[Rfam]
Nucleotides: 135
Base pairs, nucleotide, nucleotide: 003133005131006130007129008128009127010126017029018028019027031115032114033104034103035063036062037061038060058102059101067079068078084100085099086098087097088096106118107117108116
Number, partner (000 for none) and nucleotide at each position: 001000u002000u003133g004000a005131a006130u007129c008128u009127u010126c011000g012000g013000g014000g015000c016000a017029g018028g019027g020000u021000g022000u023000a024000a025000u026000u027019c028018c029017c030000g031115a032114c033104c034103g035063a036062c037061g038060g039000u040000a041000a042000c043000u044000a045000a046000c047000g048000u049000g050000a051000g052000u053000u054000a055000g056000a057000a058102g059101u060038c061037c062036g063035u064000g065000a066000c067079c068078c069000g070000c071000a072000u073000u074000u075000u076000g077000c078068g079067g080000u081000g082000g083000a084100u085099c086098u087097g088096g089000u090000g091000a092000g093000a094000g095000u096088c097087c098086a099085g100084a101059g102058c103034c104033g105000a106118c107117a108116g109000u110000u111000a112000a113000a114032g115031u116108c117107u118106g119000g120000a121000u122000g123000g124000g125000a126010g127009a128008a129007g130006a131005u132000a133003u134000g135000g